[Rfam]
RNA: Repression of heat shock gene expression (ROSE) element
RNA sequence: CCCCGCGCCGCUCGGUGGGCGGGGCUCUCAACUCGUAUCCAUGUUGCUCGACGGGAGGAUAUGGCUAUGAGGA
Numbered sequence: 001c002c003c004c005g006c007g008c009c010g011c012u013c014g015g016u017g018g019g020c021g022g023g024g025c026u027c028u029c030a031a032c033u034c035g036u037a038u039c040c041a042u043g044u045u046g047c048u049c050g051a052c053g054g055g056a057g058g059a060u061a062u063g064g065c066u067a068u069g070a071g072g073a
Base pairs, nucleotide, nucleotide: 001024002023003022004021005020006019008018009017032071033070034069035068036067037066039064040063041062042061043060044059045058047057048056049055